The family of this 303-nucleotide RNA from Polynucleobacter kasalickyi is "Bacterial RNase P class A".
[Rfam]
RNA sequence: AGAGUUGGUUAGGCAACCGCCGCUUGAAAAAGGGGAGGAAAGUCCGGACUCCAUAGAGUAGGGUGAUGGCUAACGGCCAUCCAUGGUGACAUGAGGAAUAGGGCCACAGAGACGAGCGUAUUUAGUUACGGUGAAACGCGGUAACCUCCACCCGGAGCAAUCUCAAAUAGGCAGGCGUUGAGGCGACUCGCUGAGCCUGCGGGUAGAGAGCUUGAACCCAUUGGUAACAAUGGGUCUAGAGGAAUGAUUGCCCCCGAACGAAAGUUCGGUCGACAGAAUCCGGCUUAUCGACCAACUCUGCCA
Number, nucleotide and partner (000 for none) at each position: 001a299002g298003a297004g296005u295006u294007g293008g292009u291010u290011a288012g252013g251014c250015a249016a248017c000018c246019g000020c035021c034022g000023c032024u031025u030026g000027a000028a000029a000030a025031a024032g023033g000034g021035g020036a000037g000038g000039a000040a286041a285042g284043u000044c283045c282046g281047g280048a279049c157050u156051c155052c154053a000054u000055a000056g189057a188058g187059u186060a000061g153062g152063g151064u150065g149066a080067u079068g078069g077070c076071u000072a000073a000074c000075g000076g070077c069078c068079a067080u066081c095082c093083a092084u091085g090086g000087u000088g000089a000090c085091a084092u083093g082094a000095g081096g148097a147098a000099u000100a000101g146102g145103g142104c141105c140106a000107c000108a000109g000110a000111g000112a000113c000114g000115a000116g000117c130118g129119u128120a127121u000122u000123u000124a000125g000126u000127u120128a119129c118130g117131g000132u000133g000134a000135a000136a000137c000138g000139c000140g105141g104142u103143a000144a000145c102146c101147u097148c096149c065150a064151c063152c062153c061154g052155g051156a050157g049158c000159a000160a000161u209162c208163u207164c206165a000166a000167a000168u000169a000170g000171g200172c199173a198174g197175g196176c195177g000178u000179u000180g000181a000182g192183g191184c190185g000186a059187c058188u057189c056190g184191c183192u182193g000194a000195g176196c175197c174198u173199g172200c171201g000202g000203g000204u000205a000206g164207a163208g162209a161210g000211c000212u000213u000214g000215a000216a235217c234218c233219c232220a231221u230222u229223g228224g000225u000226a000227a000228c223229a222230a221231u220232g219233g218234g217235u216236c000237u000238a000239g000240a000241g000242g000243a000244a000245u000246g018247a000248u016249u015250g014251c013252c012253c000254c000255c000256g000257a000258a000259c000260g000261a000262a000263a000264g000265u000266u000267c000268g000269g000270u000271c000272g000273a000274c000275a000276g000277a000278a000279u048280c047281c046282g045283g044284c042285u041286u040287a000288u011289c000290g010291a009292c008293c007294a006295a005296c004297u003298c002299u001300g000301c000302c000303a000